[Rfam]
RNA: TPP riboswitch aptamer (THI element)
Organism: Hydrogenophaga sp.
RNA sequence: CGCAUCCGCUAGGGGUGUUGGGGUCUGCACAGGUCCUGACUGAGAAAGUCCCUUUGAACCUGAUUGAGGUAAUCCUCGCGCAGGGAAGCAAGCGUCCAGCCUG
Numbered sequence: 001c002g003c004a005u006c007c008g009c010u011a012g013g014g015g016u017g018u019u020g021g022g023g024u025c026u027g028c029a030c031a032g033g034u035c036c037u038g039a040c041u042g043a044g045a046a047a048g049u050c051c052c053u054u055u056g057a058a059c060c061u062g063a064u065u066g067a068g069g070u071a072a073u074c075c076u077c078g079c080g081c082a083g084g085g086a087a088g089c090a091a092g093c094g095u096c097c098a099g100c101c102u103g
Stems, first nucleotide, its partner, number of pairs: 008089003011053004016047001017040009059084004065078004